[Rfam]
The family of this 137-nucleotide RNA sequence from Trinickia soli is "Burkholderia sRNA 2".
The family's RNA type in Rfam is small RNA.
Rfam's curators write: Upregulated in response to iron ion depletion. Predicted targets include MerR family transcriptional regulator.

RNA sequence: AUGAGUUCCCGUUCACUUCGUCUUGUUCGCAGCCGCGCCGGCGUCGUCGCCAAGGCAGACGCUUUACCCGUCAGGCGCCGUGCAAUGCUCGCAAUCGAGCCGCUAGCUCCAUCGCAACCGGAGCGGCGGCUUUUUUG
Numbered sequence: 001a002u003g004a005g006u007u008c009c010c011g012u013u014c015a016c017u018u019c020g021u022c023u024u025g026u027u028c029g030c031a032g033c034c035g036c037g038c039c040g041g042c043g044u045c046g047u048c049g050c051c052a053a054g055g056c057a058g059a060c061g062c063u064u065u066a067c068c069c070g071u072c073a074g075g076c077g078c079c080g081u082g083c084a085a086u087g088c089u090c091g092c093a094a095u096c097g098a099g100c101c102g103c104u105a106g107c108u109c110c111a112u113c114g115c116a117a118c119c120g121g122a123g124c125g126g127c128g129g130c131u132u133u134u135u136u137g
Stems, first nucleotide, its partner, number of pairs: 008037001009035001011033003014029001041083004048077004060070002086097002089094001098131006106124005

For this family Rfam cites "Identification of novel small RNAs in Burkholderia cenocepacia KC-01 expressed under iron limitation and oxidative stress conditions" (Ghosh et al., Microbiology, 2017). Pairs were carried over by alignment from the consensus structure, which was predicted with RNAfold.